[Rfam]
RNA: Mammalian CPEB3 ribozyme
Organism: Crocodylus porosus
RNA sequence: AGGUUGCAAAUUUGAGUCUACAGCCGAAGUGUUCAUGGUAUGACCAUGUCAGAUUCCCGUAAAACUGUGAAUUCUGCU
Numbered sequence: 001a002g003g004u005u006g007c008a009a010a011u012u013u014g015a016g017u018c019u020a021c022a023g024c025c026g027a028a029g030u031g032u033u034c035a036u037g038g039u040a041u042g043a044c045c046a047u048g049u050c051a052g053a054u055u056c057c058c059g060u061a062a063a064a065c066u067g068u069g070a071a072u073u074c075u076g077c078u
Base pairs, nucleotide, nucleotide: 013046014045016044017043018042022078023077024076026074027073028072029041030040031039050067051066052065054063055062